[Rfam]
RNA sequence: GAGCAAUGAUGACAAGGUUUUACUACAGACCUUUGUAACUACACUUGAUCUGAGCUCG
Numbered sequence: 001g002a003g004c005a006a007u008g009a010u011g012a013c014a015a016g017g018u019u020u021u022a023c024u025a026c027a028g029a030c031c032u033u034u035g036u037a038a039c040u041a042c043a044c045u046u047g048a049u050c051u052g053a054g055c056u057c058g
Base pairs, nucleotide, nucleotide: 001057002056003055004054014033015032016031017030018029019028
This 58-nucleotide sequence from Bos taurus belongs to the Rfam family "Small nucleolar RNA U2-30". Taxonomically the source falls in Bos (Eukaryota, Craniata, Teleostomi, Artiodactyla). Rfam classes the family as a C/D-box small nucleolar RNA. Pairs were carried over by alignment from the consensus structure, which is taken from published work. On this family, see Tycowski et al., Curr Biol 2004: "Guide RNAs with 5' Caps and Novel Box C/D snoRNA-like Domains for Modification of snRNAs in Metazoa". It scores 61 bits against the family's covariance model.